[Rfam]
RNA: CyVA-1 RNA
Organism: Oculatella sp. LEGE 06141
RNA sequence: GUACUGGAUGGGGGUUAUAUCGCUGUGCCCCAUUAUCACAUCUCGAAGGAGAGCGACGUCAGAGAUGUGGACAGUCA
Dot-bracket structure: ..((((..((((................))))....((((((((.................))))))))..))))..